[Rfam]
RNA sequence: GGUUGUUCUCAGGGCGGGGCGGAAUUCCCCACCGGCGGUAUCGGGAGAAAUCCCGGAGCCCGCGAGCGCUUCCCCAAAAGGGAAGGUCAGCAGAUCCGGUGCGAUGCCGGAGCCGACGGUCAAUAGUCCGGAUGAAAGAGAGCAAGC
Numbered sequence: 001g002g003u004u005g006u007u008c009u010c011a012g013g014g015c016g017g018g019g020c021g022g023a024a025u026u027c028c029c030c031a032c033c034g035g036c037g038g039u040a041u042c043g044g045g046a047g048a049a050a051u052c053c054c055g056g057a058g059c060c061c062g063c064g065a066g067c068g069c070u071u072c073c074c075c076a077a078a079a080g081g082g083a084a085g086g087u088c089a090g091c092a093g094a095u096c097c098g099g100u101g102c103g104a105u106g107c108c109g110g111a112g113c114c115g116a117c118g119g120u121c122a123a124u125a126g127u128c129c130g131g132a133u134g135a136a137a138g139a140g141a142g143c144a145a146g147c
Base pairs, nucleotide, nucleotide: 003145004144005143006142007141008140009139010138017029018028019027031127032126033115034114035063036062037061038060058113059112066091067090095111096110097109098108099107117130118129119128
The record is a 147-nucleotide RNA from Sinorhizobium sp. BG8, which matches "FMN riboswitch aptamer (RFN element)" in Rfam.
A search with the family's covariance model found it, with a score of 112 bits.
The RFN element is a highly conserved domain that is found frequently in the 5'-untranslated regions of prokaryotic mRNAs that encode for flavin mononucleotide (FMN) biosynthesis and transport proteins.
The literature on the family includes a 2002 paper in Nucleic Acids Res by Vitreschak et al., "Regulation of riboflavin biosynthesis and transport genes in bacteria by transcriptional and translational attenuation".
Lineage of the source: Bacteria > Pseudomonadati > Alphaproteobacteria > Hyphomicrobiales > Sinorhizobium.